Shown here is a 131-nucleotide sequence from Firmicutes bacterium CAG:137, a member of the family "FMN riboswitch aptamer (RFN element)". A search with the family's covariance model found it, with a score of 113 bits.
[Rfam]
RNA sequence: GGAAAUCUUCAGGGCAGGGUGAAAUUCCCGACCGGCGGUGAGCCCCAGGGCAAGUCCGCGAACGCUGCUUGCAGCGCCGAGCUGGUGAAAUUCCAGCACCGACAGUACAGUCUGGAUGGAAGAAGAUGCGC
Number, nucleotide and partner (000 for none) at each position: 001g000002g000003a000004a000005a127006u126007c125008u124009u123010c122011a000012g000013g000014g000015c000016a000017g029018g028019g027020u000021g000022a000023a000024a000025u000026u000027c019028c018029c017030g000031a111032c110033c101034g100035g059036c058037g057038g056039u000040g000041a000042g000043c000044c000045c000046c000047a000048g000049g000050g000051c000052a000053a000054g099055u098056c038057c037058g036059c035060g000061a000062a000063c076064g075065c000066u000067g000068c000069u000070u000071g000072c000073a000074g000075c064076g063077c000078c000079g000080a000081g097082c096083u095084g094085g093086u000087g000088a000089a000090a000091u000092u000093c085094c084095a083096g082097c081098a055099c054100c034101g033102a000103c114104a113105g112106u000107a000108c000109a000110g032111u031112c105113u104114g103115g000116a000117u000118g000119g000120a000121a000122g010123a009124a008125g007126a006127u005128g000129c000130g000131c000